[Rfam]
RNA sequence: AGUCGAUAAUACUAAACCAUUCGCGAGAGUGGGGCGGAAAGCCUAAAGGGUCUCUCUGAGACAGCCAGGAUGCCGAA
Numbered sequence: 001a002g003u004c005g006a007u008a009a010u011a012c013u014a015a016a017c018c019a020u021u022c023g024c025g026a027g028a029g030u031g032g033g034g035c036g037g038a039a040a041g042c043c044u045a046a047a048g049g050g051u052c053u054c055u056c057u058g059a060g061a062c063a064g065c066c067a068g069g070a071u072g073c074c075g076a077a
Stems, first nucleotide, its partner, number of pairs: 012037002017032006040071001042069002048066002050062005
Overview:
Shown here is a 77-nucleotide RNA sequence from Geobacter pickeringii, a member of the family "c-di-GMP-I riboswitch aptamer". The match comes from Rfam's covariance-model search (41 bits). GEMM was predicted in a large-scale screen for bacterial structured RNA regulatory elements. Genes associated with GEMM are involved in a diverse array of functions, including chemotaxis regulation, signal transduction, secretion and chitin.